Rfam assigns this 84-nucleotide sequence to the family "c-di-GMP-II-GAG riboswitch aptamer". The sequence is in the family's curated seed alignment. Gene Ontology terms of the family: regulation of gene expression and cyclic-di-GMP binding. For this family Rfam cites "Bioinformatic analysis of riboswitch structures uncovers variant classes with altered ligand specificity" (Weinberg et al., Proc Natl Acad Sci U S A, 2017).

RNA sequence: CCGCACGCGGGAGGCUCUGACACGCGGCCCACACUCGGCCGCCGGGACCGCGCCGAGCCACUGGCGAGACCGAUCCGCGGGAGG
Number, nucleotide and partner (000 for none) at each position: 001c084002c083003g000004c081005a000006c079007g078008c077009g076010g075011g074012a000013g059014g058015c057016u000017c000018u000019g000020a000021c000022a000023c052024g051025c050026g049027g048028c000029c046030c000031a000032c000033a000034c000035u000036c000037g071038g070039c000040c066041g065042c064043c063044g000045g000046g029047a000048c027049c026050g025051c024052g023053c000054c000055g000056a000057g015058c014059c013060a000061c000062u000063g043064g042065c041066g040067a000068g000069a000070c038071c037072g000073a000074u011075c010076c009077g008078c007079g006080g000081g004082a000083g002084g001